[Rfam]
Record summary:
A member of the RNA family "U5 spliceosomal RNA" from Brachypodium distachyon, 119 nucleotides long. The literature on the family includes a 1996 paper in J Biol Chem by Hinz et al., "Domain analysis of human U5 RNA. Cap trimethylation, protein binding, and spliceosome assembly". From the family's description: U5 RNA is a component of both types of known spliceosome. The precise function of this molecule is unknown, though it is known that the 5' loop is required for splice site selection and p220 binding, and that both the 3' stem-loop and the Sm site are important for Sm protein binding and cap methylation. Lineage of the source: Eukaryota > Magnoliopsida > Mesangiospermae > Stipodae > Brachypodium.
RNA sequence: AGCUGCGUGGUGACCACAAAGCGAACUAUUCUUUCGCCUUUUACUAAAGAAUACCGUGUGGGCGCCACAAUGUGCAGCAUACUCUAAUUUUUUAAGGGGUGUUUUCUCUUUGGAGGAAA
Numbered sequence: 001a002g003c004u005g006c007g008u009g010g011u012g013a014c015c016a017c018a019a020a021g022c023g024a025a026c027u028a029u030u031c032u033u034u035c036g037c038c039u040u041u042u043a044c045u046a047a048a049g050a051a052u053a054c055c056g057u058g059u060g061g062g063c064g065c066c067a068c069a070a071u072g073u074g075c076a077g078c079a080u081a082c083u084c085u086a087a088u089u090u091u092u093u094a095a096g097g098g099g100u101g102u103u104u105u106c107u108c109u110u111u112g113g114a115g116g117a118a119a
Base pairs, nucleotide, nucleotide: 003077004076005075006074008067009066010065011064012063014061015060016059017058018057027053028052029051030050031049032048033047034046103119104118105117106116107115